[Rfam]
The record is a 75-nucleotide RNA sequence from Anguilla anguilla, which matches "mir-23 microRNA precursor family" in Rfam. Rfam links the family to the GO terms RISC complex and gene silencing by miRNA. A search with the family's covariance model found it, with a score of 66 bits. The organism belongs to Anguilla, within Eukaryota.
RNA sequence: CGGCCAGGGGAUUCCUGGCAACGUGAUUUUUGAGGUUGCAGACUGAAUCACAUUGCCAGGGAUUUCCAAUGGCUG
Numbered sequence: 001c002g003g004c005c006a007g008g009g010g011a012u013u014c015c016u017g018g019c020a021a022c023g024u025g026a027u028u029u030u031u032g033a034g035g036u037u038g039c040a041g042a043c044u045g046a047a048u049c050a051c052a053u054u055g056c057c058a059g060g061g062a063u064u065u066c067c068a069a070u071g072g073c074u075g
Stems, first nucleotide, its partner, number of pairs: 001075002004072003009067002011063011023051007